This 48-nucleotide RNA belongs to the Rfam family "SAM/SAH riboswitch aptamer".
The base pairs follow the family's consensus structure, which is taken from published work.
Rfam links the family to the GO terms S-adenosylmethionine metabolic process and regulation of gene expression.
On this family, see Weickhmann et al., Nucleic Acids Res 2019: "The structure of the SAM/SAH-binding riboswitch".

RNA sequence: UGAUGCACGCAACGGCUUCCUGACGCGUGAGAUUAAAUUAUUGGAGCA
Numbered sequence: 001u002g003a004u005g006c007a008c009g010c011a012a013c014g015g016c017u018u019c020c021u022g023a024c025g026c027g028u029g030a031g032a033u034u035a036a037a038u039u040a041u042u043g044g045a046g047c048a
Base pairs, nucleotide, nucleotide: 004032006029007028008027009026010025013022014021015047016046017045019044020043